A member of the RNA family "Metazoan signal recognition particle RNA" from Melipona bicolor, 298 nucleotides long. A reference for the family is Wild et al. (2002), "Towards the structure of the mammalian signal recognition particle", Curr Opin Struct Biol. The family's consensus secondary structure is taken from published work. About the family: The signal recognition particle (SRP) is a universally conserved ribonucleoprotein. It is involved in the co-translational targeting of proteins to membranes. The eukaryotic SRP consists of a 300-nucleotide 7S RNA and six proteins: SRPs 72, 68, 54, 19, 14, and 9. Archaeal SRP consists of a 7S RNA and homologues of the eukaryotic SRP19 and SRP54 proteins. NCBI's taxonomy places the organism under Eukaryota, Insecta, Pterygota, Anthophila, Melipona. It is annotated as a non-coding RNA gene.
RNA sequence: GCUGGGAGUGUGGCGGCUCCUGUAAUCCGGCUACUCGGAGGCUAGUUAUGACGGAGGGUCUGAGAGCGGGGGUUCCUGUUGGUGCGGGACUUACGUCGACUGGGCGUCCGCGCUAAGCUCGCCAUCAAUAUGGGCAUCCUUGGAGGAGUCCGGGAUGGCCAGGUUGGCUAGGGAGAGGCGAACCGGGCCAGAGGGGAAACCCAGCAGCCAAAAGUCUCCGUGGCGGGCAGUAGUGGGAUCGCGCCCGGGAGUGGGACCGCAGUGACAGCCUGGUCAAUAUGACUCGACUCAUAACUUU
Numbered sequence: 001g002c003u004g005g006g007a008g009u010g011u012g013g014c015g016g017c018u019c020c021u022g023u024a025a026u027c028c029g030g031c032u033a034c035u036c037g038g039a040g041g042c043u044a045g046u047u048a049u050g051a052c053g054g055a056g057g058g059u060c061u062g063a064g065a066g067c068g069g070g071g072g073u074u075c076c077u078g079u080u081g082g083u084g085c086g087g088g089a090c091u092u093a094c095g096u097c098g099a100c101u102g103g104g105c106g107u108c109c110g111c112g113c114u115a116a117g118c119u120c121g122c123c124a125u126c127a128a129u130a131u132g133g134g135c136a137u138c139c140u141u142g143g144a145g146g147a148g149u150c151c152g153g154g155a156u157g158g159c160c161a162g163g164u165u166g167g168c169u170a171g172g173g174a175g176a177g178g179c180g181a182a183c184c185g186g187g188c189c190a191g192a193g194g195g196g197a198a199a200c201c202c203a204g205c206a207g208c209c210a211a212a213a214g215u216c217u218c219c220g221u222g223g224c225g226g227g228c229a230g231u232a233g234u235g236g237g238a239u240c241g242c243g244c245c246c247g248g249g250a251g252u253g254g255g256a257c258c259g260c261a262g263u264g265a266c267a268g269c270c271u272g273g274u275c276a277a278u279a280u281g282a283c284u285c286g287a288c289u290c291a292u293a294a295c296u297u298u
Stems, first nucleotide, its partner, number of pairs: 001042003004021006026039003044296008056285005064275002067272004076268006083261005090255005096249001100248008108237002111235005117228009126166004131161003135157006142151003168172001175218005186209003193202003